[Rfam]
RNA sequence: CCCCCGCUCGAAGAAUCGCAACGAAGCACACAUACAGAGCAUCUCUCACCGGAUGUCUCCGCUACGCAUGCUUUGGGAGAAAGUCCCCGGACAUCGGGUCUAAUGACCCGCGCUUUCAGCAACGAACCGCCAUAGAAGCGCGGCCUCCCCACAUCAACAUCCGCUUGGCUCCUGCGACCGUAUGCACUCUUUGCUCCUUUGUUAUCGAGGCUCGUGUGGAGGAGCUGGCACCUGGACGACGAUACGAGUCCGCUGGUUUCCGAAGCAUGCCGCCAACGGCCUGAGAAGCUAGGAGGAGGAACAGGAGUACGAGGGCGCGAUGGUGGCUUGGAGGGUUCUCUCGUCCAGUUUAUGGCUAUGCGAUUGCUCGGCCUCGCCUCCAACCUUGUGGAGAUGCGGACGGGUAACUCAAUGGGGCUUAUUCUCGACGCGAGG
Numbered sequence: 001c002c003c004c005c006g007c008u009c010g011a012a013g014a015a016u017c018g019c020a021a022c023g024a025a026g027c028a029c030a031c032a033u034a035c036a037g038a039g040c041a042u043c044u045c046u047c048a049c050c051g052g053a054u055g056u057c058u059c060c061g062c063u064a065c066g067c068a069u070g071c072u073u074u075g076g077g078a079g080a081a082a083g084u085c086c087c088c089g090g091a092c093a094u095c096g097g098g099u100c101u102a103a104u105g106a107c108c109c110g111c112g113c114u115u116u117c118a119g120c121a122a123c124g125a126a127c128c129g130c131c132a133u134a135g136a137a138g139c140g141c142g143g144c145c146u147c148c149c150c151a152c153a154u155c156a157a158c159a160u161c162c163g164c165u166u167g168g169c170u171c172c173u174g175c176g177a178c179c180g181u182a183u184g185c186a187c188u189c190u191u192u193g194c195u196c197c198u199u200u201g202u203u204a205u206c207g208a209g210g211c212u213c214g215u216g217u218g219g220a221g222g223a224g225c226u227g228g229c230a231c232c233u234g235g236a237c238g239a240c241g242a243u244a245c246g247a248g249u250c251c252g253c254u255g256g257u258u259u260c261c262g263a264a265g266c267a268u269g270c271c272g273c274c275a276a277c278g279g280c281c282u283g284a285g286a287a288g289c290u291a292g293g294a295g296g297a298g299g300a301a302c303a304g305g306a307g308u309a310c311g312a313g314g315g316c317g318c319g320a321u322g323g324u325g326g327c328u329u330g331g332a333g334g335g336u337u338c339u340c341u342c343g344u345c346c347a348g349u350u351u352a353u354g355g356c357u358a359u360g361c362g363a364u365u366g367c368u369c370g371g372c373c374u375c376g377c378c379u380c381c382a383a384c385c386u387u388g389u390g391g392a393g394a395u396g397c398g399g400a401c402g403g404g405u406a407a408c409u410c411a412a413u414g415g416g417g418c419u420u421a422u423u424c425u426c427g428a429c430g431c432g433a434g435g
Stems, first nucleotide, its partner, number of pairs: 002435002005432003008428004014365006022077001023074005037059003040055004081420003085417004097108004263337002270334002273331003279327003367404004372399001